Source information:
Hepatitis C virus stem-loop SL8001 RNA: a 58-nucleotide RNA. For this family Rfam cites "The Coding Region of the HCV Genome Contains a Network of Regulatory RNA Structures" (Pirakitikulr et al., Mol Cell, 2016). Even though Hepatitis C virus (HCV) SL8001 is not required for overall replication, conformational changes in this motif tune the initial rate of replication. The family's consensus secondary structure was predicted with RNAfold. Rfam classes the family as a cis-regulatory element. It is one of the family's seed sequences.

RNA sequence: CUAUCCAGUAGGGCCGUGAACCACAUCAACUCCGUGUGGAAGGACCUUCUGGAAGACA
Numbered sequence: 001c002u003a004u005c006c007a008g009u010a011g012g013g014c015c016g017u018g019a020a021c022c023a024c025a026u027c028a029a030c031u032c033c034g035u036g037u038g039g040a041a042g043g044a045c046c047u048u049c050u051g052g053a054a055g056a057c058a
Stems, first nucleotide, its partner, number of pairs: 004053005010047003014043002021039006